The family of this 61-nucleotide RNA from Actinopolymorpha singaporensis is "L17-Actino-Proteobacteria ribosomal protein leader". The base pairs follow the family's consensus structure, which is taken from published work. By type it is a cis-regulatory leader.

[Rfam]
RNA sequence: GCGGGCGGGACCUCCGGGUACUCGCCCGCACUGACACCGGUACCUGAUCCGGCCGGUGCAG
Number, nucleotide and partner (000 for none) at each position: 001g029002c028003g027004g026005g025006c024007g023008g022009g021010a000011c000012c000013u000014c000015c000016g000017g000018g000019u000020a000021c009022u008023c007024g006025c005026c004027c003028g002029c001030a000031c061032u060033g059034a000035c058036a057037c056038c055039g054040g053041u052042a000043c000044c000045u000046g000047a000048u000049c000050c000051g000052g041053c040054c039055g038056g037057u036058g035059c033060a032061g031